[Rfam]
RNA: Small nucleolar RNA Z157/R69/R10
RNA sequence: GUCGUAGCGUUGAUGACAGAUUUGUGGACUAGAGUUUCUGAUGCCGCCUCUUCAGCAGCAUCUGCAGACAACCCCUUGGCUGUCUGAGCUCCCAG
Numbered sequence: 001g002u003c004g005u006a007g008c009g010u011u012g013a014u015g016a017c018a019g020a021u022u023u024g025u026g027g028a029c030u031a032g033a034g035u036u037u038c039u040g041a042u043g044c045c046g047c048c049u050c051u052u053c054a055g056c057a058g059c060a061u062c063u064g065c066a067g068a069c070a071a072c073c074c075c076u077u078g079g080c081u082g083u084c085u086g087a088g089c090u091c092c093c094a095g
Stems, first nucleotide, its partner, number of pairs: 002094001004092001006090003035067002038064001042060003046056002